[Rfam]
A member of the RNA family "Bacterial large subunit ribosomal RNA" from Flagellimonas eckloniae, 442 nucleotides of a longer RNA. The organism belongs to Flagellimonas, within Bacteria.

RNA sequence: CUCCCCGAAAUGCAUUUAGGUGCAGCGUUCUGAUAGUUAUAUAGAGGUAGAGCUACUGAUUGGAUGCGGGGGCUUCACCGCCUACCAAUUCCUGACAAACUCCGAAUGCUAUAUAAUGUUUCAGGGCAGUGAGGGCAUGGGUGCUAAGGUCCAUGUCCGAGAGGGAAAGAACCCGGACCAUCAGCUAAGGUCCCCAAGUGUGUGCUAAGUUGACAAAACGCGGUGGAACUGCAUAGACAGCCAGGAUGUUGGCUUGGAAGCAGCCAUUCAUUUAAAGAGUGCGUAACAGCUCACUGGUCGAGCGGUUCCGCAUGGAUAAUGAUCGGGCAUAAGCACACCACCGAAGCUAUGGCUUUACAGUUUACUGUAAGGGGUAGGGGAGCAUUCCAUUCUGCGUUGAAGCGGUCCUGCGAGGUACCGUGGAGCGUAUGGAAACGAAAAU
Numbered sequence: 001c002u003c004c005c006c007g008a009a010a011u012g013c014a015u016u017u018a019g020g021u022g023c024a025g026c027g028u029u030c031u032g033a034u035a036g037u038u039a040u041a042u043a044g045a046g047g048u049a050g051a052g053c054u055a056c057u058g059a060u061u062g063g064a065u066g067c068g069g070g071g072g073c074u075u076c077a078c079c080g081c082c083u084a085c086c087a088a089u090u091c092c093u094g095a096c097a098a099a100c101u102c103c104g105a106a107u108g109c110u111a112u113a114u115a116a117u118g119u120u121u122c123a124g125g126g127c128a129g130u131g132a133g134g135g136c137a138u139g140g141g142u143g144c145u146a147a148g149g150u151c152c153a154u155g156u157c158c159g160a161g162a163g164g165g166a167a168a169g170a171a172c173c174c175g176g177a178c179c180a181u182c183a184g185c186u187a188a189g190g191u192c193c194c195c196a197a198g199u200g201u202g203u204g205c206u207a208a209g210u211u212g213a214c215a216a217a218a219c220g221c222g223g224u225g226g227a228a229c230u231g232c233a234u235a236g237a238c239a240g241c242c243a244g245g246a247u248g249u250u251g252g253c254u255u256g257g258a259a260g261c262a263g264c265c266a267u268u269c270a271u272u273u274a275a276a277g278a279g280u281g282c283g284u285a286a287c288a289g290c291u292c293a294c295u296g297g298u299c300g301a302g303c304g305g306u307u308c309c310g311c312a313u314g315g316a317u318a319a320u321g322a323u324c325g326g327g328c329a330u331a332a333g334c335a336c337a338c339c340a341c342c343g344a345a346g347c348u349a350u351g352g353c354u355u356u357a358c359a360g361u362u363u364a365c366u367g368u369a370a371g372g373g374g375u376a377g378g379g380g381a382g383c384a385u386u387c388c389a390u391u392c393u394g395c396g397u398u399g400a401a402g403c404g405g406u407c408c409u410g411c412g413a414g415g416u417a418c419c420g421u422g423g424a425g426c427g428u429a430u431g432g433a434a435a436c437g438a439a440a441a442u
Stems, first nucleotide, its partner, number of pairs: 001382006011024005026129001027127007035120001036117009050103001051101002057097002062092003068086002070083004133158010163174003178352004183348003189342003198339001200338006219314002223311010240298005246271003251265003272276001277292001281290002353372008383437001385434006393427003402421005408415002